[Rfam]
RNA sequence: UUCUUAUCAAGAGUGGUGGAGGGAAAGGCCCUGCGAAACCACAGCAACCGGUCUUUUCCGGUUCGCAUUCGAGCUUAGACCAAGGCGCCGAGGAGACGGCCCCGGAGGCGUACCGAGCGUACGCUGAGGAGCCAACGACGAUGGCAACGCUGGUAUCAGCCCGAAGGCGAAGCGGAAGGCGCCAGGUGCUAAAUCCUGCCGGAGAGGCAAAGAUGAGGA
Dot-bracket structure: ((((((((....(((((...(((..[[[)))......)))))((((.(((((................................................................................................................................))).))))))...(]]].((.....))...)))))))))

Background
The family of this 219-nucleotide RNA from Geobacter pickeringii is "SAM riboswitch aptamer (S box leader)". The source organism's lineage runs through Bacteria, Pseudomonadati, Thermodesulfobacteriota, Desulfuromonadia and Geobacter. Rfam 15.1 lists 9,625 matches to the family in 4,158 species.